[Rfam]
Nucleotides: 177
Base pairs, nucleotide, nucleotide: 007171008170009169010168011167016078017077018076019075020074021073022072023071032063033062034061035060036059037058038057039056082114083113084112085111086109087108088107089106090105091104115141116140118138119137120136121135122134123133124132125131143162144161145160146159147158148157149156
Number, partner (000 for none) and nucleotide at each position: 001000u002000a003000a004000c005000g006000a007171g008170g009169u010168a011167g012000a013000g014000g015000u016078g017077c018076a019075g020074u021073a022072u023071u024000a025000a026000a027000g028000a029000g030000u031000a032063c033062u034061a035060u036059u037058a038057a039056u040000g041000a042000g043000g044000u045000a046000a047000g048000c049000a050000c051000g052000a053000u054000g055000a056039g057038u058037u059036a060035a061034u062033a063032g064000g065000a066000a067000a068000g069000g070000g071023a072022a073021u074020a075019u076018u077017g078016c079000c080000g081000a082114a083113g084112c085111g086109u087108a088107u089106g090105a091104u092000u093000a094000a095000u096000g097000c098000u099000u100000u101000a102000a103000u104091a105090u106089c107088a108087u109086g110000u111085c112084g113083c114082u115141g116140g117000g118138g119137u120136u121135a122134u123133a124132u125131a126000u127000a128000a129000u130000a131125u132124a133123u134122a135121u136120a137119a138118c139000a140116c141115u142000g143162u144161c145160a146159c147158a148157a149156a150000g151000u152000u153000u154000a155000u156149u157148u158147u159146g160145u161144g162143g163000a164000g165000a166000g167011c168010u169009a170008u171007c172000a173000u174000u175000a176000g177000a